[Rfam]
RNA sequence: GUUCCCUAUGAGGCUCAUCUUGACCAUGCUAAUUCCGAUAUGCCUUGAUGAUAAAGUUUUAUGUGAUGUUCUGAGGGAACC
Number, nucleotide and partner (000 for none) at each position: 001g080002u079003u078004c077005c076006c075007u074008a000009u000010g000011a000012g000013g000014c000015u000016c000017a000018u000019c000020u000021u000022g000023a000024c000025c000026a000027u000028g000029c000030u000031a000032a000033u000034u000035c000036c000037g000038a000039u000040a000041u000042g000043c000044c000045u000046u000047g000048a000049u000050g000051a000052u000053a000054a000055a000056g000057u000058u000059u000060u000061a000062u000063g000064u000065g000066a000067u000068g000069u000070u000071c000072u000073g000074a007075g006076g005077g004078a003079a002080c001081c000